[Rfam]
A member of the RNA family "ZMP/ZTP riboswitch aptamer (pfl RNA motif)" from Streptomyces carminius, 94 nucleotides long.
RNA sequence: CGAACGGGCCGUGACUGGCGCGCAGGGAUGGGAUCGACCAUCGGGGAGCGGCCCUCGCCCCGUGCGAGAAGAGCCGUGCGCCUGGGCCGCCCGG
Numbered sequence: 001c002g003a004a005c006g007g008g009c010c011g012u013g014a015c016u017g018g019c020g021c022g023c024a025g026g027g028a029u030g031g032g033a034u035c036g037a038c039c040a041u042c043g044g045g046g047a048g049c050g051g052c053c054c055u056c057g058c059c060c061c062g063u064g065c066g067a068g069a070a071g072a073g074c075c076g077u078g079c080g081c082c083u084g085g086g087c088c089g090c091c092c093g094g
Stems, first nucleotide, its partner, number of pairs: 006054007015045002017082005028041004073087003